RNA sequence: AUAACGUGAUGGGAAGCGCCUCGCUUCCCGUGUAUGAUUGAACCCGCAUGGCUCCCGAAACAUUGAGGGAAGCGUUGAGGGUUCAUUUUUAU
Numbered sequence: 001a002u003a004a005c006g007u008g009a010u011g012g013g014a015a016g017c018g019c020c021u022c023g024c025u026u027c028c029c030g031u032g033u034a035u036g037a038u039u040g041a042a043c044c045c046g047c048a049u050g051g052c053u054c055c056c057g058a059a060a061c062a063u064u065g066a067g068g069g070a071a072g073c074g075u076u077g078a079g080g081g082u083u084c085a086u087u088u089u090u091a092u
Stems, first nucleotide, its partner, number of pairs: 010030009039085007054069003

Notes
sroE RNA: a 92-nucleotide RNA from Escherichia coli. For this family Rfam cites "RNomics in Escherichia coli detects new sRNA species and indicates parallel transcriptional output in bacteria" (Vogel et al., Nucleic Acids Res, 2003). Rfam classes the family as a small RNA. The family's consensus secondary structure was predicted with PFOLD. Rfam's curators write: This family consists of a number of bacterial sroE RNA genes of around 90 bases in length. sroE is found in several Enterobacterial species but its function is unknown. NCBI's taxonomy places the organism under Bacteria, Pseudomonadati, Pseudomonadota, Enterobacteriaceae, Escherichia.